[Rfam]
Nucleotides: 160
Stems, first nucleotide, its partner, number of pairs: 004153001006151001013144004019076008028067002034062008078097007100125008110115001126137002
Number, partner (000 for none) and nucleotide at each position: 001000a002000c003000a004153u005000a006151g007000a008000a009000u010000u011000u012000a013144c014143a015142c016141c017000g018000a019076g020075c021074u022073u023072u024071u025070a026069u027000c028067g029066c030000u031000a032000a033000c034062c035061u036060a037059g038058u039057u040056a041055a042000c043000u044000u045000c046000a047000c048000u049000a050000u051000u052000u053000a054000u055041u056040u057039a058038a059037c060036u061035a062034g063000c064000a065000c066029g067028u068000c069026a070025u071024a072023a073022a074021a075020g076019c077000c078097g079096u080095a081094a082093g083092c084091a085000a086000u087000u088000c089000g090000u091084u092083g093082u094081u095080u096079a097078c098000c099000a100125g101124g102123g103122u104121u105120a106119a107118c108000a109000a110115g111000g112000a113000a114000a115110c116000g117000c118107g119106u120105u121104a122103g123102c124101c125100u126137c127136c128000c129000g130000u131000u132000a133000u134000u135000u136127g137126g138000a139000a140000a141016g142015g143014u144013g145000a146000c147000a148000u149000g150000u151006u152000a153004a154000c155000a156000g157000a158000c159000a160000a